[Rfam]
A member of the RNA family "Guanidine-II riboswitch aptamer (mini-ykkC)" from Corynebacterium glyciniphilum, 47 nucleotides long.
For this family Rfam cites "Identification of 22 candidate structured RNAs in bacteria using the CMfinder comparative genomics pipeline" (Weinberg et al., Nucleic Acids Res, 2007).
About the family: Simpler in structure and has fewer highly conserved nucleotide positions than the ykkC-yxkD leader. Despite this each of its two stem-loop structures directly bind free guanidine. Therefore, mini-ykkC RNA motif represents a distinct class of guanidine-sensing RNAs.
Lineage of the source: Bacteria > Mycobacteriales > Corynebacteriaceae > Corynebacterium > Corynebacterium glyciniphilum.
RNA sequence: UCGCCGGGACGACCCGGCCGGUUACACCCUGAGCAGGGACGACCCCG
Dot-bracket structure: (.((((((....)))))).).............(.(((....))).)